[Rfam]
RNA: Fluoride riboswitch aptamer (crcB RNA motif)
Organism: Erwinia tracheiphila
RNA sequence: GUUUCGCAAGGUGAUGGUGUUCCACCUUUCCCAACCGCCCUGUUCGCAAGGGGCUGAUGACGCCUGAUAACAC
Numbered sequence: 001g002u003u004u005c006g007c008a009a010g011g012u013g014a015u016g017g018u019g020u021u022c023c024a025c026c027u028u029u030c031c032c033a034a035c036c037g038c039c040c041u042g043u044u045c046g047c048a049a050g051g052g053g054c055u056g057a058u059g060a061c062g063c064c065u066g067a068u069a070a071c072a073c
Stems, first nucleotide, its partner, number of pairs: 010026004016064006037054004